[Rfam]
RNA sequence: GUACGGGGCCGGGUCCCUCUGACGGCGGAUCACGCCGUGAUGUCGGACCGUAUCG
Numbered sequence: 001g002u003a004c005g006g007g008g009c010c011g012g013g014u015c016c017c018u019c020u021g022a023c024g025g026c027g028g029a030u031c032a033c034g035c036c037g038u039g040a041u042g043u044c045g046g047a048c049c050g051u052a053u054c055g
Base pairs, nucleotide, nucleotide: 006049007048009046010045011044012043022038023037024036025035026034027033
A member of the RNA family "terC RNA" from Novosphingobium endophyticum, 55 nucleotides long. It scores 52 bits against the family's covariance model. Taxonomically the source falls in Novosphingobium (Bacteria, Alphaproteobacteria, Sphingomonadales, Sphingomonadaceae). It is annotated as a cis-regulatory element.